A member of the RNA family "XIST RNA A repeat" from Dipodomys ordii, 35 nucleotides long. The family has 54 seed sequences and 900 matches in Rfam 15.1. A reference for the family is Duszczyk et al. (2011), "The Xist RNA A-repeat comprises a novel AUCG tetraloop fold and a platform for multimerization", RNA. Rfam classes the family as a small RNA. A search with the family's covariance model found it, with a score of 36 bits. Lineage of the source: Eukaryota > Eumetazoa > Dipnotetrapodomorpha > Euarchontoglires > Dipodomys.
[Rfam]
RNA sequence: AAGCCCAUCGGGGCAACGGAUACCUGGGGUUUUUU
Numbered sequence: 001a002a003g004c005c006c007a008u009c010g011g012g013g014c015a016a017c018g019g020a021u022a023c024c025u026g027g028g029g030u031u032u033u034u035u
Stems, first nucleotide, its partner, number of pairs: 003014004017026003